[Rfam]
RNA: transfer-messenger RNA
Organism: Limosilactobacillus mucosae
RNA sequence: GGGGAUGUUUAUGGAUUCGACGGGUAUAGUUCGAAUUCCGGCUGCGUUUCGAAGGUUGCGGCUUCGUAAAAACGCUCAGUUUCAAAUUAUAACUGCAAACAAUAAUUCAAACUCUUACGCAUACGCUGCCUAACAAGUAAGCAUGCGUAAAUCCGGCUGGGCUCGUCCAUGGUGCAGUACCGGGUUUUAUCUAACAGUGGACUUACGCUUGCUGCUCCGGCUUGAAGCAACAAGAAGAGACCAAUCAAGCUAGUUGUGUGGGUUAGCCCUGAUCAGCGGCGUUCCAGACAAUGAACCUUAAAUAGCUGAGAUAUGAACGUAGACGCCGAAAUGGCGAUAUAUUCGGACGCGGGUUCAAAUCCCGCCAUCUCCAUUU
Numbered sequence: 001g002g003g004g005a006u007g008u009u010u011a012u013g014g015a016u017u018c019g020a021c022g023g024g025u026a027u028a029g030u031u032c033g034a035a036u037u038c039c040g041g042c043u044g045c046g047u048u049u050c051g052a053a054g055g056u057u058g059c060g061g062c063u064u065c066g067u068a069a070a071a072a073c074g075c076u077c078a079g080u081u082u083c084a085a086a087u088u089a090u091a092a093c094u095g096c097a098a099a100c101a102a103u104a105a106u107u108c109a110a111a112c113u114c115u116u117a118c119g120c121a122u123a124c125g126c127u128g129c130c131u132a133a134c135a136a137g138u139a140a141g142c143a144u145g146c147g148u149a150a151a152u153c154c155g156g157c158u159g160g161g162c163u164c165g166u167c168c169a170u171g172g173u174g175c176a177g178u179a180c181c182g183g184g185u186u187u188u189a190u191c192u193a194a195c196a197g198u199g200g201a202c203u204u205a206c207g208c209u210u211g212c213u214g215c216u217c218c219g220g221c222u223u224g225a226a227g228c229a230a231c232a233a234g235a236a237g238a239g240a241c242c243a244a245u246c247a248a249g250c251u252a253g254u255u256g257u258g259u260g261g262g263u264u265a266g267c268c269c270u271g272a273u274c275a276g277c278g279g280c281g282u283u284c285c286a287g288a289c290a291a292u293g294a295a296c297c298u299u300a301a302a303u304a305g306c307u308g309a310g311a312u313a314u315g316a317a318c319g320u321a322g323a324c325g326c327c328g329a330a331a332u333g334g335c336g337a338u339a340u341a342u343u344c345g346g347a348c349g350c351g352g353g354u355u356c357a358a359a360u361c362c363c364g365c366c367a368u369c370u371c372c373a374u375u376u
Stems, first nucleotide, its partner, number of pairs: 001372007021345008030336001035332003039328004045319005050066005058075003122147001124145002127143003150186006156178004161173003165202006208234004213229004219251006253292005259286004266280003273309002349365005